[Rfam]
RNA sequence: UGACUUUGUCUUAAGUCAAACUUGUUAUCUUAGACCAAGUUUAUAGAAAAAUAUAUUAACAUCUACAAUAUCAAAUGAAUCCACUAUCAAAAUAUUAUUUCCUGGUGUAUGCAAUGAAUAUAGUUUGAUGUAGCAGAUGUUUAUGCAUUUUUCUAUAAACUUGGUCAAUGUUAGAGAAGUUUGACUUAGGACAAAGCUAA
Numbered sequence: 001u002g003a004c005u006u007u008g009u010c011u012u013a014a015g016u017c018a019a020a021c022u023u024g025u026u027a028u029c030u031u032a033g034a035c036c037a038a039g040u041u042u043a044u045a046g047a048a049a050a051a052u053a054u055a056u057u058a059a060c061a062u063c064u065a066c067a068a069u070a071u072c073a074a075a076u077g078a079a080u081c082c083a084c085u086a087u088c089a090a091a092a093u094a095u096u097a098u099u100u101c102c103u104g105g106u107g108u109a110u111g112c113a114a115u116g117a118a119u120a121u122a123g124u125u126u127g128a129u130g131u132a133g134c135a136g137a138u139g140u141u142u143a144u145g146c147a148u149u150u151u152u153c154u155a156u157a158a159a160c161u162u163g164g165u166c167a168a169u170g171u172u173a174g175a176g177a178a179g180u181u182u183g184a185c186u187u188a189g190g191a192c193a194a195a196g197c198u199a200a
Base pairs, nucleotide, nucleotide: 005195006194007193008192009191011189012188013187014186015185016184017183018182019181020180021179022178023177025175026174031168033166034165035164044155045154046153047152048151049150050149051148054145055144056143058141059140060139061138062137063136064135066133071128072127073126074125075124076123
RNA: MIR1435 microRNA precursor family
Organism: Miscanthus lutarioriparius